This 129-nucleotide RNA from Aliidiomarina minuta belongs to the Rfam family "Gammaprotebacteria rimP leader". The family's RNA type in Rfam is cis-regulatory leader. A reference for the family is Naville and Gautheret (2010), "Premature terminator analysis sheds light on a hidden world of bacterial transcriptional attenuation", Genome Biol. A search with the family's covariance model found it, with a score of 56 bits.
[Rfam]
RNA sequence: GCCCCCGCAACCAAUUACAGGGUUCCAGUUUGGUUGAAAAGCCCCGACAUGCAAGCGGGGCUUUUUGCUAUCUGCCCUGUGAUGAAGUUUUAUAUCGUCACCAAAAACUGGGCUAUAAGCCCUUUUUUU
Number, nucleotide and partner (000 for none) at each position: 001g000002c000003c000004c000005c000006c000007g000008c000009a000010a000011c000012c000013a000014a000015u000016u000017a000018c000019a000020g000021g000022g000023u000024u000025c000026c000027a000028g000029u000030u000031u000032g000033g000034u000035u000036g000037a000038a064039a063040a062041g061042c060043c059044c058045c057046g056047a000048c000049a000050u000051g000052c000053a000054a000055g000056c046057g045058g044059g043060g042061c041062u040063u039064u038065u000066u000067g000068c000069u000070a000071u000072c000073u000074g000075c000076c000077c000078u000079g000080u000081g000082a000083u000084g000085a000086a000087g000088u000089u000090u000091u000092a000093u000094a000095u000096c000097g000098u000099c000100a000101c000102c000103a000104a000105a000106a000107a000108c000109u000110g122111g121112g120113c119114u000115a000116u000117a000118a000119g113120c112121c111122c110123u000124u000125u000126u000127u000128u000129u000